RNA sequence: UACAAUAAGGCUUUCGUGGGUGGCGGUUUCACUCCCCUGACUUAAAAAUAGGGAAGGGGGUGAUGCCUAUAUGACGGUUUUUGAAACGCUUGUUUUAAUGAUUUCCUUCGGGACGUUAAUUGUUGCAAUACUGUCGAGCCAUAAAAAAUAACCACCCAUGAGCCUGGCAAGCAUGGUGGGUAGUUAUUUCUUAAAAACCUAUGUGUGAGCCGCCCCCUUGAAGGGCAGUUGUACAGAACCGUUGGUGGAGAACACCAGCGG
Number, nucleotide and partner (000 for none) at each position: 001u233002a232003c231004a230005a229006u227007a000008a000009g211010g210011c209012u208013u162014u161015c160016g159017u158018g157019g156020g155021u000022g152023g000024c000025g000026g000027u000028u000029u063030c062031a061032c000033u060034c059035c058036c057037c056038u000039g000040a000041c000042u000043u000044a000045a000046a000047a000048a000049u000050a000051g000052g000053g000054a000055a000056g037057g036058g035059g034060g033061u031062g030063a029064u000065g000066c000067c000068u000069a000070u000071a000072u000073g135074a134075c133076g132077g131078u130079u000080u000081u000082u000083g000084a000085a000086a000087c100088g099089c000090u000091u000092g000093u000094u000095u000096u000097a000098a000099u088100g087101a000102u000103u000104u000105c000106c000107u000108u000109c000110g000111g126112g000113a124114c000115g000116u000117u000118a000119a000120u000121u000122g000123u000124u113125g000126c111127a000128a000129u000130a078131c077132u076133g075134u074135c073136g000137a000138g000139c000140c000141a000142u000143a000144a000145a000146a000147a000148a000149u000150a000151a000152c022153c000154a000155c020156c019157c018158a017159u016160g015161a014162g013163c000164c000165u000166g000167g000168c000169a000170a000171g000172c203173a202174u201175g200176g199177u000178g000179g000180g000181u000182a000183g000184u000185u000186a000187u000188u000189u000190c000191u000192u000193a000194a000195a000196a000197a000198c000199c176200u175201a174202u173203g172204u000205g000206u000207g000208a012209g011210c010211c009212g226213c225214c224215c223216c000217c000218u000219u000220g000221a000222a000223g215224g214225g213226c212227a006228g000229u005230u004231g003232u002233a001234c000235a000236g000237a000238a000239c261240c260241g259242u258243u257244g256245g255246u254247g253248g000249a000250g000251a000252a000253c247254a246255c245256c244257a243258g242259c241260g240261g239
RNA: BsrG